RNA sequence: UAGAACUGACAGCUUGAAAAGUCAAAUGAAGGGGUAACGCCUUGAAGGGCUUUCUCUAAAUUACGACUAGCAAGAUACUGAAUAAGCAGUUGAAUGUUAGAUAGCUCGUUAAAGUCGGCUGAGAGUAUACCCUAACAGGUAAAGCUGAGGAAAAGCGAACUAGAGGUAGUCGAGUACAUGAUAGGUCGGGAGUCUAUAAA
Numbered sequence: 001u002a003g004a005a006c007u008g009a010c011a012g013c014u015u016g017a018a019a020a021g022u023c024a025a026a027u028g029a030a031g032g033g034g035u036a037a038c039g040c041c042u043u044g045a046a047g048g049g050c051u052u053u054c055u056c057u058a059a060a061u062u063a064c065g066a067c068u069a070g071c072a073a074g075a076u077a078c079u080g081a082a083u084a085a086g087c088a089g090u091u092g093a094a095u096g097u098u099a100g101a102u103a104g105c106u107c108g109u110u111a112a113a114g115u116c117g118g119c120u121g122a123g124a125g126u127a128u129a130c131c132c133u134a135a136c137a138g139g140u141a142a143a144g145c146u147g148a149g150g151a152a153a154a155g156c157g158a159a160c161u162a163g164a165g166g167u168a169g170u171c172g173a174g175u176a177c178a179u180g181a182u183a184g185g186u187c188g189g190g191a192g193u194c195u196a197u198a199a200a
Stems, first nucleotide, its partner, number of pairs: 018053006031043004054192004063109004067100006077090004116188005125179002128176003131150003138146002156172002159170004

The record is a 200-nucleotide RNA from Clostridium oryzae, which matches "Group II catalytic intron D1-D4-5" in Rfam. The source organism's lineage runs through Bacteria, Bacillati, Clostridia, Eubacteriales and Clostridium. A search with the family's covariance model found it, with a score of 148 bits. Rfam 15.1 lists 720 matches to the family in 418 species. About the family: Group II introns are found in rRNA, tRNA and mRNA of organelles in fungi, plants and protists, and also in mRNA in bacteria.